[Rfam]
RNA sequence: CGACCUCAGAUCAGACGAGACGACCCGCUGAAUUUAAGCAUAUUACUAAGCGGAGGAAAAGAAACUAACAAGGAUUCCCUCAGUAGCGGCGAGCGAAGAGGGAAGAGCCCAGCGCCGAAUCCCCGUCGACCGGCGGACGCGGGAAAUGUGGCGUACGGAAGACCGCUUGCCCGGCGCGGCUCGGGGGCCUGAGUCCUCCUGAUCGAGGCUCAUCCCGUGGACGGUGUGAGGCCGGUAACGGCCCCCGUCGCGCCGGGGUCCGGUCUUCUCGGAGUCGGGUUGCUUGGGAAUGCAGCCCAAAGCGGGUGGUAAACUCCAUCUAAGGCUAAAUACCGGCACGAGACCGAUAGUCAACAAGUACUGCGAGGGAAAGUUGAAAAGAACUUUGAAGAGAGAGUUCAAGAGGGCGUGAAACCGUUAAGAGGUAAA
Number, nucleotide and partner (000 for none) at each position: 001c000002g000003a000004c000005c000006u000007c000008a000009g000010a000011u000012c000013a000014g000015a000016c000017g000018a000019g000020a000021c000022g000023a000024c055025c053026c052027g051028c050029u049030g000031a000032a000033u000034u000035u042036a041037a000038g000039c000040a000041u036042a035043u000044u000045a000046c000047u000048a000049a029050g028051c027052g026053g025054a000055g024056g000057a000058a000059a000060a000061g000062a000063a000064a000065c072066u071067a000068a000069c000070a000071a066072g065073g000074a000075u000076u103077c102078c101079c100080u099081c000082a000083g000084u000085a000086g094087c093088g000089g000090c000091g000092a000093g087094c086095g000096a000097a000098g000099a080100g079101g078102g077103a076104a000105g000106a327107g326108c325109c324110c000111a000112g000113c153114g152115c151116c150117g149118a000119a147120u144121c143122c142123c141124c139125g138126u137127c136128g000129a000130c000131c000132g000133g000134c000135g000136g127137a126138c125139g124140c000141g123142g122143g121144a120145a000146a000147u119148g000149u117150g116151g115152c114153g113154u000155a000156c000157g000158g268159a267160a000161g265162a264163c263164c262165g000166c000167u000168u000169g000170c000171c256172c255173g254174g253175c252176g251177c250178g000179g000180c000181u000182c000183g246184g245185g244186g243187g242188c241189c240190u000191g000192a000193g209194u000195c208196c207197u206198c205199c000200u000201g000202a000203u000204c000205g198206a197207g196208g195209c193210u000211c000212a000213u000214c000215c000216c220217g000218u000219g000220g216221a000222c000223g233224g232225u000226g000227u000228g000229a000230g000231g000232c224233c223234g000235g000236u000237a000238a000239c000240g189241g188242c187243c186244c185245c184246c183247g000248u000249c000250g177251c176252g175253c174254c173255g172256g171257g000258g000259u000260c000261c000262g164263g163264u162265c161266u000267u159268c158269u000270c000271g000272g000273a000274g000275u000276c000277g298278g297279g296280u295281u294282g293283c292284u000285u000286g000287g000288g000289a000290a000291u000292g283293c282294a281295g280296c279297c278298c277299a000300a000301a000302g000303c000304g321305g320306g319307u318308g317309g000310u000311a000312a000313a000314c000315u000316c000317c308318a307319u306320c305321u304322a000323a000324g109325g108326c107327u106328a000329a000330a000331u000332a000333c000334c000335g000336g000337c000338a000339c000340g000341a000342g000343a000344c000345c000346g000347a000348u000349a000350g000351u000352c000353a000354a000355c000356a000357a000358g000359u000360a000361c368362u367363g000364c000365g000366a000367g362368g361369g000370a000371a000372a000373g000374u000375u000376g000377a000378a000379a000380a000381g000382a000383a000384c395385u394386u393387u392388g000389a000390a000391g000392a387393g386394a385395g384396a000397g000398u000399u000400c000401a000402a000403g000404a000405g000406g000407g000408c000409g000410u000411g000412a000413a000414a000415c000416c000417g000418u000419u000420a000421a000422g000423a000424g000425g000426u000427a000428a000429a000

The record is a 429-nucleotide part of an RNA from Erpetoichthys calabaricus, which matches "Eukaryotic large subunit ribosomal RNA" in Rfam.